[Rfam]
RNA sequence: UGGAUAAAUUAUUGUAUUCGAUUGUAUUCGGUUGUAUUCAUGGUGUGAAAUAGGAAAAUACAUUGUUUUUAAACGGAAAGUGAAUCAAUUAACAUAAUAGACUCCU
Numbered sequence: 001u002g003g004a005u006a007a008a009u010u011a012u013u014g015u016a017u018u019c020g021a022u023u024g025u026a027u028u029c030g031g032u033u034g035u036a037u038u039c040a041u042g043g044u045g046u047g048a049a050a051u052a053g054g055a056a057a058a059u060a061c062a063u064u065g066u067u068u069u070u071a072a073a074c075g076g077a078a079a080g081u082g083a084a085u086c087a088a089u090u091a092a093c094a095u096a097a098u099a100g101a102c103u104c105c106u
Base pairs, nucleotide, nucleotide: 002105003104004103009100010099011098012097013096014095015094017092018091020090021089033087034086036085037084038083039082040081041080044075045074046073047069048068049067050066051065052064053063

This 106-nucleotide RNA from Nicotiana sylvestris belongs to the Rfam family "MIR6152 microRNA precursor family". Pairs were carried over by alignment from the consensus structure, which was predicted with RNAalifold. Gene Ontology terms of the family: miRNA-mediated post-transcriptional gene silencing and RISC complex.